[Rfam]
RNA: MIR4374 microRNA precursor family
Organism: Glycine soja
RNA sequence: CAAGGACGGUGCUUACCUCAGCAACGUCUUUGAAAGUGGACAUUCAAAGACGGUGCUUAUCUCAACAACGUCUUAGAAUGUCUACUUUCAAAGACGAUGUUGAGGUAAACACCGUCUUU
Numbered sequence: 001c002a003a004g005g006a007c008g009g010u011g012c013u014u015a016c017c018u019c020a021g022c023a024a025c026g027u028c029u030u031u032g033a034a035a036g037u038g039g040a041c042a043u044u045c046a047a048a049g050a051c052g053g054u055g056c057u058u059a060u061c062u063c064a065a066c067a068a069c070g071u072c073u074u075a076g077a078a079u080g081u082c083u084a085c086u087u088u089c090a091a092a093g094a095c096g097a098u099g100u101u102g103a104g105g106u107a108a109a110c111a112c113c114g115u116c117u118u119u
Stems, first nucleotide, its partner, number of pairs: 004117004009112003013108008022099002025096015041080005047074006054067002057064001